[Rfam]
RNA sequence: UGGUGCGGCGCUCGCGCGCCGCAGGCAUCGAGUAGGUCGGGCCGCCUACC
Numbered sequence: 001u002g003g004u005g006c007g008g009c010g011c012u013c014g015c016g017c018g019c020c021g022c023a024g025g026c027a028u029c030g031a032g033u034a035g036g037u038c039g040g041g042c043c044g045c046c047u048a049c050c
Base pairs, nucleotide, nucleotide: 005022006021007020008019009018010017011016032049033048034047035046036045037044